[Rfam]
RNA sequence: UUACUCCCUCUGUCUCAUAAUAUAAGAAUGUUUUUCAAGUUAACAUAGCUUGAAAAACGUUUUUAUAUUAUGGGACGGAGGGAGUAA
Numbered sequence: 001u002u003a004c005u006c007c008c009u010c011u012g013u014c015u016c017a018u019a020a021u022a023u024a025a026g027a028a029u030g031u032u033u034u035u036c037a038a039g040u041u042a043a044c045a046u047a048g049c050u051u052g053a054a055a056a057a058c059g060u061u062u063u064u065a066u067a068u069u070a071u072g073g074g075a076c077g078g079a080g081g082g083a084g085u086a087a
Base pairs, nucleotide, nucleotide: 003085004084005083007081008080009079010078011077013075014074015073016072017071019069020068021067022066023065024064025063026062027061028060029059030058031057032056033055034054035053036052037051038050039049040048041047
Record summary:
A member of the RNA family "MIR1120/MIR1122 microRNA precursor family" from Triticum aestivum, 87 nucleotides long. The base pairs follow the family's consensus structure, which was predicted with RNAalifold. It scores 91 bits against the family's covariance model. For this family Rfam cites "Cloning and characterization of microRNAs from wheat (Triticum aestivum L.)" (Yao et al., Genome Biol, 2007). Taxonomically the source falls in Triticum (Eukaryota, Viridiplantae, Spermatophyta, Pooideae).